This 87-nucleotide RNA from Candidatus Sulfobium mesophilum belongs to the Rfam family "c-di-GMP-I riboswitch aptamer".
Taxonomically the source falls in Candidatus Sulfobium (Bacteria, Pseudomonadati, Nitrospiria, Nitrospiraceae).
It scores 37 bits against the family's covariance model.
RNA sequence: CAGCGCGAAAUCCCGUAACCCCUUCGAUACAAGGGGACGGAAAGCGGCGGAUCUUAUCCGCAAACAGAAGAUGGCCGAGCUGCCGAA
Numbered sequence: 001c002a003g004c005g006c007g008a009a010a011u012c013c014c015g016u017a018a019c020c021c022c023u024u025c026g027a028u029a030c031a032a033g034g035g036g037a038c039g040g041a042a043a044g045c046g047g048c049g050g051a052u053c054u055u056a057u058c059c060g061c062a063a064a065c066a067g068a069a070g071a072u073g074g075c076c077g078a079g080c081u082g083c084c085g086a087a
Base pairs, nucleotide, nucleotide: 012040013039020035021034022033023032024031043081044080045079048077049076050075051072052071053070058067060065